[Rfam]
RNA sequence: ACUGUCAACGGUAUCCGUUGACAGUUUUUAAAUA
Numbered sequence: 001a002c003u004g005u006c007a008a009c010g011g012u013a014u015c016c017g018u019u020g021a022c023a024g025u026u027u028u029u030a031a032a033u034a
Stems, first nucleotide, its partner, number of pairs: 001025009
Bacillus-plasmid RNA: a 34-nucleotide sequence from Leptidea sinapis. Pairs were carried over by alignment from the consensus structure, which is taken from published work. The match comes from Rfam's covariance-model search (31 bits).